[Rfam]
RNA: Bacillus sRNA ncr1575
Organism: Fontibacillus panacisegetis
RNA sequence: AAAUACAAUUAUGAGAGGACUGAUGGAUGGACAAUGAUUAACUAAUCUAUAUUUUAAUUUGAAAUGAAUAACUUCAAACUUCAAAAUAUAGGGUUAGUCUAUCCAUUUUUAUAAAUCAGUUUACACUUUAUUUGUCAUGAUUCUUAUGACAAAAACAGAACUUAUUUAAUAUAAGUGAAAGACUAAUCCUUCCAAUUACAAAAUUGGGGGGAUUUUUUA
Numbered sequence: 001a002a003a004u005a006c007a008a009u010u011a012u013g014a015g016a017g018g019a020c021u022g023a024u025g026g027a028u029g030g031a032c033a034a035u036g037a038u039u040a041a042c043u044a045a046u047c048u049a050u051a052u053u054u055u056a057a058u059u060u061g062a063a064a065u066g067a068a069u070a071a072c073u074u075c076a077a078a079c080u081u082c083a084a085a086a087u088a089u090a091g092g093g094u095u096a097g098u099c100u101a102u103c104c105a106u107u108u109u110u111a112u113a114a115a116u117c118a119g120u121u122u123a124c125a126c127u128u129u130a131u132u133u134g135u136c137a138u139g140a141u142u143c144u145u146a147u148g149a150c151a152a153a154a155a156c157a158g159a160a161c162u163u164a165u166u167u168a169a170u171a172u173a174a175g176u177g178a179a180a181g182a183c184u185a186a187u188c189c190u191u192c193c194a195a196u197u198a199c200a201a202a203a204u205u206g207g208g209g210g211g212a213u214u215u216u217u218u219a
Base pairs, nucleotide, nucleotide: 016110017109018108024105025104026103027102030099031098032097043096044095045094046093047092048091049089050088051087052086053085054084058078059077060076061075062074063073065071118166119165120164126158127157129155131153132152133151134150135149185214186213187212188211189210190209191208192207193206194205195204